[Rfam]
RNA sequence: AAUGAGCACUUAAGGGGAAGGUGAAAACCUUCGAUAAGGUUCGAGCCGAGCGUAGCGAGACAACGACGCAAAGCGUCGGCCCGAAGGGUGAGGAACGAAGUGACGAAUAAUCCUUCCCCCACCACCC
Numbered sequence: 001a002a003u004g005a006g007c008a009c010u011u012a013a014g015g016g017g018a019a020g021g022u023g024a025a026a027a028c029c030u031u032c033g034a035u036a037a038g039g040u041u042c043g044a045g046c047c048g049a050g051c052g053u054a055g056c057g058a059g060a061c062a063a064c065g066a067c068g069c070a071a072a073g074c075g076u077c078g079g080c081c082c083g084a085a086g087g088g089u090g091a092g093g094a095a096c097g098a099a100g101u102g103a104c105g106a107a108u109a110a111u112c113c114u115u116c117c118c119c120c121a122c123c124a125c126c127c
Base pairs, nucleotide, nucleotide: 015118016117017116018115019114020113021112022110032090033089035087040085041084042083043082047057048056064078065077066076067075068074069073